[Rfam]
RNA sequence: GGCUUAUUUUGCGCAGGCGGAGCUCGACCGCCCGUUCCGCAAAUGAUUGCCUUCAUCGCAGCCCAUCGCGAGGAUUUUGGGGUCGAGCCGAUCUGCCGUGUUCUGCCGAUCGCCCCG
Numbered sequence: 001g002g003c004u005u006a007u008u009u010u011g012c013g014c015a016g017g018c019g020g021a022g023c024u025c026g027a028c029c030g031c032c033c034g035u036u037c038c039g040c041a042a043a044u045g046a047u048u049g050c051c052u053u054c055a056u057c058g059c060a061g062c063c064c065a066u067c068g069c070g071a072g073g074a075u076u077u078u079g080g081g082g083u084c085g086a087g088c089c090g091a092u093c094u095g096c097c098g099u100g101u102u103c104u105g106c107c108g109a110u111c112g113c114c115c116c117g
Stems, first nucleotide, its partner, number of pairs: 016032005078117005089112002092109002095106002098103001

Notes: The record is a 117-nucleotide sequence from Histidinibacterium lentulum, which matches "ALIL pseudoknot" in Rfam. A search with the family's covariance model found it, with a score of 111 bits. By type it is a cis-regulatory element. Taxonomically the source falls in Histidinibacterium (Bacteria, Pseudomonadota, Alphaproteobacteria, Rhodobacterales). The base pairs follow the family's consensus structure, which is taken from published work. For this family Rfam cites "Apical loop-internal loop RNA pseudoknots: a new type of stimulator of -1 translational frameshifting in bacteria" (Mazauric et al., J Biol Chem, 2008).